[Rfam]
RNA sequence: CUAUGCCGGCCGGGGAGUCAGCGGUGCCUUGUACCUGCAAUCCGCUACAGCAGGGGCGAUCCCGUAUAUGAGGCUUGUGCUUGUGUGGUCUGCGCCGCAGCACCCAUGCGUUGAAGGAUGGGUCUCGCGCAAUCCGAUGCUUUGAAUCAUGUCAGAUGGGGAACCAAGCAGCAUUAAGGAGAUUUUCGGAUGUGCCGCGAGGACGCCUGUCCCGAGCAAGGACUGCGGUGGCGCAUGUGAGCGCAAGUCGAACUGCGGUGCAUGG
Numbered sequence: 001c002u003a004u005g006c007c008g009g010c011c012g013g014g015g016a017g018u019c020a021g022c023g024g025u026g027c028c029u030u031g032u033a034c035c036u037g038c039a040a041u042c043c044g045c046u047a048c049a050g051c052a053g054g055g056g057c058g059a060u061c062c063c064g065u066a067u068a069u070g071a072g073g074c075u076u077g078u079g080c081u082u083g084u085g086u087g088g089u090c091u092g093c094g095c096c097g098c099a100g101c102a103c104c105c106a107u108g109c110g111u112u113g114a115a116g117g118a119u120g121g122g123u124c125u126c127g128c129g130c131a132a133u134c135c136g137a138u139g140c141u142u143u144g145a146a147u148c149a150u151g152u153c154a155g156a157u158g159g160g161g162a163a164c165c166a167a168g169c170a171g172c173a174u175u176a177a178g179g180a181g182a183u184u185u186u187c188g189g190a191u192g193u194g195c196c197g198c199g200a201g202g203a204c205g206c207c208u209g210u211c212c213c214g215a216g217c218a219a220g221g222a223c224u225g226c227g228g229u230g231g232c233g234c235a236u237g238u239g240a241g242c243g244c245a246a247g248u249c250g251a252a253c254u255g256c257g258g259u260g261c262a263u264g265g
Stems, first nucleotide, its partner, number of pairs: 001265006009057003012030004017025003034054005062258003066254001069251001072249005078243010091230002096227005104221002107218003116212008124201006130192002133190005140181004149174004157166003
The record is a 265-nucleotide RNA from Eubacterium sp. CAG:841, which matches "Bacterial large signal recognition particle RNA" in Rfam. Taxonomically the source falls in Eubacterium (Bacteria, Bacillati, Bacillota, Eubacteriaceae). It scores 182 bits against the family's covariance model.